[Rfam]
RNA sequence: GGAGGUCAAAUUGACUCUAGUAGGGAGUCUAUUUACACAUUGUAGUGACUCCCUAACGGAGUCAGAUUGAUUUCUGA
Numbered sequence: 001g002g003a004g005g006u007c008a009a010a011u012u013g014a015c016u017c018u019a020g021u022a023g024g025g026a027g028u029c030u031a032u033u034u035a036c037a038c039a040u041u042g043u044a045g046u047g048a049c050u051c052c053c054u055a056a057c058g059g060a061g062u063c064a065g066a067u068u069g070a071u072u073u074c075u076g077a
Stems, first nucleotide, its partner, number of pairs: 011065008021055009

The record is a 77-nucleotide RNA from Chironomus riparius, which matches "mir-929 microRNA precursor family" in Rfam.
For this family Rfam cites "Functional shifts in insect microRNA evolution" (Marco et al., Genome Biol Evol, 2010).
The match comes from Rfam's covariance-model search (80 bits).
NCBI's taxonomy places the organism under Eukaryota, Ecdysozoa, Nematocera, Chironomoidea, Chironomus.
Pairs were carried over by alignment from the consensus structure, which was predicted with RNAalifold.